[Rfam]
The record is a 550-nucleotide part of an RNA from Methanohalophilus mahii, which matches "Archaeal large subunit ribosomal RNA" in Rfam. Its family is annotated with structural constituent of ribosome and ribosome in the Gene Ontology. It is one of the family's seed sequences. The organism belongs to Methanohalophilus mahii, within Archaea.
RNA sequence: GCAUUUAUGCCAGCAGGUGAAUGGCUCGGCUCAAGGACCGAUGAAGGACGUGUCAAGCUGCGAUAUGCCUCGGCUAGGCGCAUGAAGCCUAUGAACCGAGGAUCUCCUAAUGAGACCUCUUGACCUUAAAUGGUCGAUCAGUAAUGAUCGGGAACGUUCCGAAUUGAAACAUCUUAGUAGGAACCGGAAAAGAAAUCGAAGAGAUGCCGCUAGUAACGGCGAGUGAACACGGCACAGUUCAAACCGAAUCCCUCUGGAAACAGAAGGGAAAUGUGGUGUGGUAGGACUUUUCCAAGGAUCCUUUCUCACUGACCCCGAAUUUGACUGGAACGUCAAACCAUAGAGUGUGAUAGUCACGUAGGACUAAGUGAACGGAUCUGGAAUUGUUCCAGAGUACCGUGCGUUGGAUAUCGCGCGGGAACCCGGGAGGCAUCAACUUCCAAAACUAAAUAUCUCUUGAGACCGAUAGUGAACUAGUAGGGUGACCGAAAACUGAAAAGUACCCCAAAAAGGGAGGUUCAAAGUGCCUGAAACCUGUUGGUUAUGGAAC
Numbered sequence: 001g002c003a004u005u006u007a008u009g010c011c012a013g014c015a016g017g018u019g020a021a022u023g024g025c026u027c028g029g030c031u032c033a034a035g036g037a038c039c040g041a042u043g044a045a046g047g048a049c050g051u052g053u054c055a056a057g058c059u060g061c062g063a064u065a066u067g068c069c070u071c072g073g074c075u076a077g078g079c080g081c082a083u084g085a086a087g088c089c090u091a092u093g094a095a096c097c098g099a100g101g102a103u104c105u106c107c108u109a110a111u112g113a114g115a116c117c118u119c120u121u122g123a124c125c126u127u128a129a130a131u132g133g134u135c136g137a138u139c140a141g142u143a144a145u146g147a148u149c150g151g152g153a154a155c156g157u158u159c160c161g162a163a164u165u166g167a168a169a170c171a172u173c174u175u176a177g178u179a180g181g182a183a184c185c186g187g188a189a190a191a192g193a194a195a196u197c198g199a200a201g202a203g204a205u206g207c208c209g210c211u212a213g214u215a216a217c218g219g220c221g222a223g224u225g226a227a228c229a230c231g232g233c234a235c236a237g238u239u240c241a242a243a244c245c246g247a248a249u250c251c252c253u254c255u256g257g258a259a260a261c262a263g264a265a266g267g268g269a270a271a272u273g274u275g276g277u278g279u280g281g282u283a284g285g286a287c288u289u290u291u292c293c294a295a296g297g298a299u300c301c302u303u304u305c306u307c308a309c310u311g312a313c314c315c316c317g318a319a320u321u322u323g324a325c326u327g328g329a330a331c332g333u334c335a336a337a338c339c340a341u342a343g344a345g346u347g348u349g350a351u352a353g354u355c356a357c358g359u360a361g362g363a364c365u366a367a368g369u370g371a372a373c374g375g376a377u378c379u380g381g382a383a384u385u386g387u388u389c390c391a392g393a394g395u396a397c398c399g400u401g402c403g404u405u406g407g408a409u410a411u412c413g414c415g416c417g418g419g420a421a422c423c424c425g426g427g428a429g430g431c432a433u434c435a436a437c438u439u440c441c442a443a444a445a446c447u448a449a450a451u452a453u454c455u456c457u458u459g460a461g462a463c464c465g466a467u468a469g470u471g472a473a474c475u476a477g478u479a480g481g482g483u484g485a486c487c488g489a490a491a492a493c494u495g496a497a498a499a500g501u502a503c504c505c506c507a508a509a510a511a512g513g514g515a516g517g518u519u520c521a522a523a524g525u526g527c528c529u530g531a532a533a534c535c536u537g538u539u540g541g542u543u544a545u546g547g548a549a550c
Base pairs, nucleotide, nucleotide: 009542010541011540012539013538014537015536016535017534023528024493028464029463030461031460032459033458034457035456036454037453045108046107047106048105049062050061051060068101069100070099071098072097073096077089078088079087112121113120114119137148138147139146140145155186156184157183158182159181160180166173167172196202197201206233207232208231209230216224217223236447237446238445239444244276245275246274253264254263255262256261290383291382298377299376300375301374315362316361320336322335323334324333325332339343345357346356347355397418398417399416400415401414402413403412425441426440427439428438429437480487481486
Dot-bracket structure: ........(((((((((.....((...((((((((((.......(((((((........))).....((((((...(((.......)))......))))))...))))...(((....)))...............((((....))))......((((((.....((....))......))))).).........((...))...((((......((.....)).....))))..((((....(((......((((....)))).........))).............((......((((.............((...(.((((......)))))..(...).(((.......)))...))...........))))....)).............(((((((........)))))))......(((((.......)))))..)))).....)).)))))).))...............((....)).....)..................................).....)))))))))........